This 70-nucleotide RNA sequence from Tribolium castaneum belongs to the Rfam family "mir-252 microRNA precursor family".
A reference for the family is Li et al. (2009), "Direct sequencing and expression analysis of a large number of miRNAs in Aedes aegypti and a multi-species survey of novel mosquito miRNAs", BMC Genomics.
The family's consensus secondary structure was predicted with RNAalifold.

RNA sequence: UCCUGUUACUAAGUACUAGUGCCGCAGGAGUACAUUCGACCUCCUGCUGCUCAAGUGCUUAUCAAUGGGC
Numbered sequence: 001u002c003c004u005g006u007u008a009c010u011a012a013g014u015a016c017u018a019g020u021g022c023c024g025c026a027g028g029a030g031u032a033c034a035u036u037c038g039a040c041c042u043c044c045u046g047c048u049g050c051u052c053a054a055g056u057g058c059u060u061a062u063c064a065a066u067g068g069g070c
Base pairs, nucleotide, nucleotide: 002069003068004067005066006065007064010061011060012059013058014057015056016055017054019052024047025046026045027044028043029042030041